[Rfam]
RNA sequence: UAACAUCUUCAGGGCAGGGUGAAAUUCCCGACCGGUGGUAAAGUCCACGAGCCGCUUCACAGCGGUUGAUCUGGUGCAAUUCCAGAACCGACAGUAAAGUCUGGAUGGAAGAAGAUCAGU
Numbered sequence: 001u002a003a004c005a006u007c008u009u010c011a012g013g014g015c016a017g018g019g020u021g022a023a024a025u026u027c028c029c030g031a032c033c034g035g036u037g038g039u040a041a042a043g044u045c046c047a048c049g050a051g052c053c054g055c056u057u058c059a060c061a062g063c064g065g066u067u068g069a070u071c072u073g074g075u076g077c078a079a080u081u082c083c084a085g086a087a088c089c090g091a092c093a094g095u096a097a098a099g100u101c102u103g104g105a106u107g108g109a110a111g112a113a114g115a116u117c118a119g120u
Base pairs, nucleotide, nucleotide: 005116006115007114008113009112010111017029018028019027031100032099033090034089035048036047037046038045043088044087051066052065053064070086071085072084073083074082092103093102094101
Shown here is a 120-nucleotide sequence from Acidaminobacter hydrogenoformans, a member of the family "FMN riboswitch aptamer (RFN element)". The family's consensus secondary structure is taken from published work. Rfam's curators write: The RFN element is a highly conserved domain that is found frequently in the 5'-untranslated regions of prokaryotic mRNAs that encode for flavin mononucleotide (FMN) biosynthesis and transport proteins. This element is a metabolite-dependent riboswitch that directly binds FMN in the absence of proteins. In Bacillus subtilis, the riboswitch most likely controls gene expression by causing premature transcription termination within the 5' untranslated region of the ribDEAHT operon and precluding access to the ribosome-binding site of ypaA mRNA.The FMN riboswitch structure, reported in present an FMN-bound six-stem junction, adopts a butterfly-like scaffold, stapled together by opposingly directed but nearly identically folded peripheral domains. Gene Ontology term of the family: FMN binding.